[Rfam]
The family of this 166-nucleotide RNA sequence from Peribacillus loiseleuriae is "M-box riboswitch aptamer (ykoK leader)". A search with the family's covariance model found it, with a score of 58 bits. Rfam links the family to the GO terms response to magnesium ion and regulation of gene expression.

RNA sequence: UAUUAUUCUUGUUAUGUGAGGCUUCUAUGCUGGAGAUCUGCUGCUCUGAAACGGCCAAAGACACCGAUGGGUCAACAGGAACCAUCGACAUAAGGUCGUUUGUGUUUCAUGUAGCUUUAAAAAUCCUUUGCAGUAGUGUUAAAGCUUAAACGAUUGAAGGAUUGUA
Numbered sequence: 001u002a003u004u005a006u007u008c009u010u011g012u013u014a015u016g017u018g019a020g021g022c023u024u025c026u027a028u029g030c031u032g033g034a035g036a037u038c039u040g041c042u043g044c045u046c047u048g049a050a051a052c053g054g055c056c057a058a059a060g061a062c063a064c065c066g067a068u069g070g071g072u073c074a075a076c077a078g079g080a081a082c083c084a085u086c087g088a089c090a091u092a093a094g095g096u097c098g099u100u101u102g103u104g105u106u107u108c109a110u111g112u113a114g115c116u117u118u119a120a121a122a123a124u125c126c127u128u129u130g131c132a133g134u135a136g137u138g139u140u141a142a143a144g145c146u147u148a149a150a151c152g153a154u155u156g157a158a159g160g161a162u163u164g165u166a
Stems, first nucleotide, its partner, number of pairs: 005162006011151002013093001016145002020140003025136003030133003038114004043072004053062001055060001078106002081103001084096003119124001